[Rfam]
RNA sequence: AUGAUUUCAGGGAAUGAAGUUCUCCCUUGGGAAACCUAAACCGCUUAGUAAGCUGAUGACUUCUGUGAUGCA
Numbered sequence: 001a002u003g004a005u006u007u008c009a010g011g012g013a014a015u016g017a018a019g020u021u022c023u024c025c026c027u028u029g030g031g032a033a034a035c036c037u038a039a040a041c042c043g044c045u046u047a048g049u050a051a052g053c054u055g056a057u058g059a060c061u062u063c064u065g066u067g068a069u070g071c072a
Stems, first nucleotide, its partner, number of pairs: 010026004016063006043053003
The family of this 72-nucleotide sequence from Clostridium sp. CAG:510 is "Fluoride riboswitch aptamer (crcB RNA motif)".
For this family Rfam cites "An excited state underlies gene regulation of a transcriptional riboswitch" (Zhao et al., Nat Chem Biol, 2017).
The match comes from Rfam's covariance-model search (47 bits).
Gene Ontology terms of the family: positive regulation of gene expression and response to fluoride.
NCBI's taxonomy places the organism under Bacteria, Bacillota, Eubacteriales, Clostridiaceae, Clostridium.